Annotation
This 54-nucleotide RNA from Megalops atlanticus belongs to the Rfam family "UnaL2 LINE 3' element". The base pairs follow the family's consensus structure, which is taken from published work. The family has 30 seed sequences and 493,311 matches in Rfam 15.1. The eel long interspersed element (LINE) UnaL2 and its partner short interspersed element (SINE) share a conserved 3' tail containing a stem-loop that is critical for their retrotransposition. Presumably, the first step of retrotransposition is the recognition of their 3' tails by UnaL2-encoded reverse transcriptase. The solution structure of a 17-nucleotide RNA derived from the 3' tail of UnaL2 was determined by NMR. Lineage of the source: Eukaryota > Actinopterygii > Teleostei > Elopomorpha > Megalops.
[Rfam]
RNA sequence: GAUGGAUAAAAGUGUAAGUCCCUCUGGAUAAGAGCAUCUGCUAAAUGACAAUAA
Numbered sequence: 001g002a003u004g005g006a007u008a009a010a011a012g013u014g015u016a017a018g019u020c021c022c023u024c025u026g027g028a029u030a031a032g033a034g035c036a037u038c039u040g041c042u043a044a045a046u047g048a049c050a051a052u053a054a
Stems, first nucleotide, its partner, number of pairs: 013043001014041003022034004